The family of this 47-nucleotide sequence from Solanum lycopersicum is "Plastid-rpl16 group II-D1 intron". The organism belongs to Solanum subgen. Lycopersicon, within Eukaryota. The match comes from Rfam's covariance-model search (53 bits). Gene Ontology term of the family: Group II intron splicing. For this family Rfam cites "Retrograde signaling in plants: A critical review focusing on the GUN pathway and beyond" (Richter et al., Plant Commun, 2023). Rfam's curators write: Plastid-rpl16 is a non-coding RNA (ncRNA) recognised in plastids. It was recognised in and intronic region of a ribosome rpl16 gene.
RNA sequence: AAGAGCUUCGAUCCAAUAAAGACAUAGAAGAUUGGCUCAAGAAUCAA
Numbered sequence: 001a002a003g004a005g006c007u008u009c010g011a012u013c014c015a016a017u018a019a020a021g022a023c024a025u026a027g028a029a030g031a032u033u034g035g036c037u038c039a040a041g042a043a044u045c046a047a
Stems, first nucleotide, its partner, number of pairs: 007041002010038002013035005